[Rfam]
RNA sequence: UUCUUCUCAUGAGCUCCUCCUGUCCCACACAGUGACAGUGAAUGGAUUCGCACGAGAAGUAGAGCCAGAUCACAGUCAAAACAGGCAACUACCUUGAACUCCGUGGCAGUUUGCCCAUGUCUGAUGUGAAACAAAA
Numbered sequence: 001u002u003c004u005u006c007u008c009a010u011g012a013g014c015u016c017c018u019c020c021u022g023u024c025c026c027a028c029a030c031a032g033u034g035a036c037a038g039u040g041a042a043u044g045g046a047u048u049c050g051c052a053c054g055a056g057a058a059g060u061a062g063a064g065c066c067a068g069a070u071c072a073c074a075g076u077c078a079a080a081a082c083a084g085g086c087a088a089c090u091a092c093c094u095u096g097a098a099c100u101c102c103g104u105g106g107c108a109g110u111u112u113g114c115c116c117a118u119g120u121c122u123g124a125u126g127u128g129a130a131a132c133a134a135a136a
Stems, first nucleotide, its partner, number of pairs: 003059006013051002015046003020038005070129005089109002092106002
This 136-nucleotide sequence from Oncorhynchus tshawytscha belongs to the Rfam family "Small nucleolar RNA SNORA75". Rfam describes the family as follows. U23 belongs to the H/ACA class of snoRNAs. snoRNAs bind a number of proteins (including dyskerin, Gar1p and Nop10p in the case of the H/ACA class) to form snoRNP complexes. This class are thought to guide the sites of modification of uridines to pseudouridines by forming direct base pairing interactions with substrate RNAs. Targets include ribosomal and spliceosomal RNAs as well as the Trypanosoma spliced leader RNA (SL RNA) as possibly other, still unknown cellular RNAs. On this family, see Bachellerie et al., Biochimie 2002: "The expanding snoRNA world". The family's RNA type in Rfam is H/ACA-box small nucleolar RNA. Its family is annotated with nucleolus and RNA processing in the Gene Ontology. Taxonomically the source falls in Oncorhynchus (Eukaryota, Bilateria, Craniata, Actinopterygii).